[Rfam]
RNA sequence: AUUCAUGGAGAGAACAAAGCUCAUAUAAGCCUUGAAUUUGGCAAGGCGUUUCUACCUAAGACCUAAUCUUAGACUAUGAGAUUAACCAUUUUGCUG
Number, nucleotide and partner (000 for none) at each position: 001a000002u000003u000004c000005a000006u000007g000008g000009a000010g000011a000012g000013a000014a000015c000016a000017a000018a082019g000020c080021u079022c078023a077024u076025a075026u000027a000028a000029g047030c046031c045032u044033u043034g042035a000036a000037u000038u000039u000040g000041g000042c034043a033044a032045g031046g030047c029048g000049u000050u000051u000052c000053u000054a000055c000056c072057u071058a070059a069060g068061a067062c000063c000064u000065a000066a000067u061068c060069u059070u058071a057072g056073a000074c000075u025076a024077u023078g022079a021080g020081a000082u018083u000084a000085a000086c000087c000088a000089u000090u000091u000092u000093g000094c000095u000096g000
RNA: Purine riboswitch aptamer
Organism: Amygdalobacter nucleatus